[Rfam]
RNA: DUF3800-XI RNA
RNA sequence: CGGUCUGGGCUCAGGCUCUUUGGACCACCGAAGGCGGGGAAAAUUCCC
Numbered sequence: 001c002g003g004u005c006u007g008g009g010c011u012c013a014g015g016c017u018c019u020u021u022g023g024a025c026c027a028c029c030g031a032a033g034g035c036g037g038g039g040a041a042a043a044u045u046c047c048c
Base pairs, nucleotide, nucleotide: 002026003025004024005023006022007018008017009016010015